[Rfam]
Nucleotides: 171
Stems, first nucleotide, its partner, number of pairs: 008032009033099008047079004052067004103157007118141001120139001121137004
Number, partner (000 for none) and nucleotide at each position: 001000g002000c003000c004000g005000a006000c007000a008032g009031c010030g011029a012028g013027g014026g015025u016024a017000c018000a019000a020000u021000u022000c023000g024016u025015a026014c027013c028012c029011u030010c031009g032008u033099g034098g035097g036096c037095u038094c039093g040092g041000u042000c043000g044000a045000a046000c047079c048078c049077g050076c051000c052067u053066c054065c055064g056000c057000a058000a059000g060000a061000a062000c063000u064055c065054g066053g067052g068000c069000u070000c071000g072000a073000u074000g075000a076050g077049c078048g079047g080000a081000g082000u083000g084000u085000g086000c087000u088000c089000a090000c091000g092040c093039c094038g095037a096036g097035c098034c099033c100000a101000u102000a103157g104156g105155g106154c107153c108152g109151g110000u111000g112000c113000a114000u115000c116000c117000g118141c119000c120139c121137c122136c123135g124134u125000g126000a127000g128000u129000c130000a131000u132000g133000a134124g135123c136122g137121g138000g139120g140000a141118g142000u143000c144000u145000c146000u147000g148000u149000u150000g151109c152108c153107g154106g155105c156104c157103c158000a159000c160000a161000a162000u163000u164000u165000c166000a167000a168000a169000a170000c171000u